Nucleotides: 080
Stems, first nucleotide, its partner, number of pairs: 001033003006027002009025005035064013
Number, partner (000 for none) and nucleotide at each position: 001033g002032c003031u004000u005000u006027c007026u008000u009025c010024c011023c012022a013021g014000g015000u016000g017000c018000g019000u020000u021013c022012u023011g024010g025009g026007g027006g028000a029000u030000a031003a032002g033001c034000g035064a036063a037062g038061u039060c040059c041058g042057u043056c044055a045054g046053g047052u048000g049000c050000c051000a052047g053046c054045c055044u056043g057042g058041c059040g060039g061038g062037c063036u064035u065000c066000a067000u068000u069000c070000a071000u072000u073000u074000a075000u076000g077000g078000g079000g080000u